Shown here is an 83-nucleotide RNA sequence from Roseimaritima ulvae, a member of the family "c-di-GMP-I-GGC riboswitch aptamer".

RNA sequence: CUUGAAAAAGGCUAACCGAUCGUAAGGUCGGGGCGCAAAGCUACGGGUCCCCCGUAUUAAGUGGGACUGCCGGGUUGCCAAGG
Numbered sequence: 001c002u003u004g005a006a007a008a009a010g011g012c013u014a015a016c017c018g019a020u021c022g023u024a025a026g027g028u029c030g031g032g033g034c035g036c037a038a039a040g041c042u043a044c045g046g047g048u049c050c051c052c053c054g055u056a057u058u059a060a061g062u063g064g065g066a067c068u069g070c071c072g073g074g075u076u077g078c079c080a081a082g083g
Base pairs, nucleotide, nucleotide: 001083003080004079011036012035016031017030018029019028020027021026034069039076040075041074042073044072045071046070047067048066049065050064051063
Gene Ontology term of the family: cyclic-di-GMP binding.